[Rfam]
RNA: Eukaryotic small subunit ribosomal RNA, nucleotides 612 to 1137
Organism: Cyanidioschyzon merolae
RNA sequence: CAGUUAAAACGCUCGUAGUCGCAGCUCGGACGCGGCCCACGGGCCGGCCGCAGGCUUGCGCCGGUGGGCCGGGUCUUUCGGCUGGUGAGCGCGCGGGGUCCUCGCGGGCUCCGCGCGGCGAGCCAGCCCGUUUACUGUGAACAAAUUAGAGUGCUCCAGGCAGGCGUUCGCAUGCAUACGUUAGCAUGGAAUAAUAGAAUAGGACUUGGGUCCUGUUUUGUUGGUUUUGAGGGCCGAAGUAAUGAUGAAUAGGGACAGUCGGGGGCAUUCGUAUUCCAUUGUCAGAGGUGAAAUUCUUGGAUUUAUGGAAGACGAACAACAGCGAAAGCAUCUGCCAAGGAUGUUUUCAUUGAUCAAGAACGAAAGUUAGGGGAUCGAAGACGAUUAGAUACCGUCGUAGUCUUAACCAUAAACGAUGCCGACUCGGGAUCGGUGGAGCACAAGAUACUCCAUCGGCACCGUAGGAGAAAUCAAAGUGUUUGGGUUCUGGGGGGAGUAUGGUCGCAAGGCUGAAACUUAAAGGAAU
Numbered sequence: 001c002a003g004u005u006a007a008a009a010c011g012c013u014c015g016u017a018g019u020c021g022c023a024g025c026u027c028g029g030a031c032g033c034g035g036c037c038c039a040c041g042g043g044c045c046g047g048c049c050g051c052a053g054g055c056u057u058g059c060g061c062c063g064g065u066g067g068g069c070c071g072g073g074u075c076u077u078u079c080g081g082c083u084g085g086u087g088a089g090c091g092c093g094c095g096g097g098g099u100c101c102u103c104g105c106g107g108g109c110u111c112c113g114c115g116c117g118g119c120g121a122g123c124c125a126g127c128c129c130g131u132u133u134a135c136u137g138u139g140a141a142c143a144a145a146u147u148a149g150a151g152u153g154c155u156c157c158a159g160g161c162a163g164g165c166g167u168u169c170g171c172a173u174g175c176a177u178a179c180g181u182u183a184g185c186a187u188g189g190a191a192u193a194a195u196a197g198a199a200u201a202g203g204a205c206u207u208g209g210g211u212c213c214u215g216u217u218u219u220g221u222u223g224g225u226u227u228u229g230a231g232g233g234c235c236g237a238a239g240u241a242a243u244g245a246u247g248a249a250u251a252g253g254g255a256c257a258g259u260c261g262g263g264g265g266c267a268u269u270c271g272u273a274u275u276c277c278a279u280u281g282u283c284a285g286a287g288g289u290g291a292a293a294u295u296c297u298u299g300g301a302u303u304u305a306u307g308g309a310a311g312a313c314g315a316a317c318a319a320c321a322g323c324g325a326a327a328g329c330a331u332c333u334g335c336c337a338a339g340g341a342u343g344u345u346u347u348c349a350u351u352g353a354u355c356a357a358g359a360a361c362g363a364a365a366g367u368u369a370g371g372g373g374a375u376c377g378a379a380g381a382c383g384a385u386u387a388g389a390u391a392c393c394g395u396c397g398u399a400g401u402c403u404u405a406a407c408c409a410u411a412a413a414c415g416a417u418g419c420c421g422a423c424u425c426g427g428g429a430u431c432g433g434u435g436g437a438g439c440a441c442a443a444g445a446u447a448c449u450c451c452a453u454c455g456g457c458a459c460c461g462u463a464g465g466a467g468a469a470a471u472c473a474a475a476g477u478g479u480u481u482g483g484g485u486u487c488u489g490g491g492g493g494g495a496g497u498a499u500g501g502u503c504g505c506a507a508g509g510c511u512g513a514a515a516c517u518u519a520a521a522g523g524a525a526u
Base pairs, nucleotide, nucleotide: 001489002488003487009486011361013359014358018354019353020352252348253347254346255345256343257342259340260339264336265335266334267333270314271313274310275309276308277307278306279305281303285296286295287294322329323328366407367406368405369404370403371402376400380396381395382394383393418485419484420483422477423476425461426460427459430456431455432454433453434452435451436450437449438448440446465472466471491518492517493516500511501510502509503508